[Rfam]
Rfam assigns this 188-nucleotide RNA to the family "FuFi-1 RNA". The sequence is in the family's curated seed alignment. By type it is a small RNA.

RNA sequence: UUCGCCAACUAAUGGGCAGCUAAUCUUUUUUUACUCAAUCGCAGAACUAAAACUGCGUAAGUGGCGAAGUGUUUCAAGAAACAUUUGGUGCUGCUUAUGUGACUGAACAAGUGUGUUCAGUCUGCAAAACACAUAAGGUAAACAAAUUUAGGCAAGAACUGAUAGGAAAGCACUCCUGUCAGUUUUUU
Dot-bracket structure: (((((((................................(((((..[[[[[.)))))....)))))))((((((......((((((({{{{{...............)))))))(......)....))))))..............]]]]]....((((((((((((.}}}}}))))))))))))...